[Rfam]
RNA sequence: ACUGGUCAAGGAUGAAAACCUAUCUCUGUGGACAUCAUUGGAUGAUAGAUGCGGAUAUGGGACUGAGACCAGUU
Numbered sequence: 001a002c003u004g005g006u007c008a009a010g011g012a013u014g015a016a017a018a019c020c021u022a023u024c025u026c027u028g029u030g031g032a033c034a035u036c037a038u039u040g041g042a043u044g045a046u047a048g049a050u051g052c053g054g055a056u057a058u059g060g061g062a063c064u065g066a067g068a069c070c071a072g073u074u
Base pairs, nucleotide, nucleotide: 001073002072003071004070005069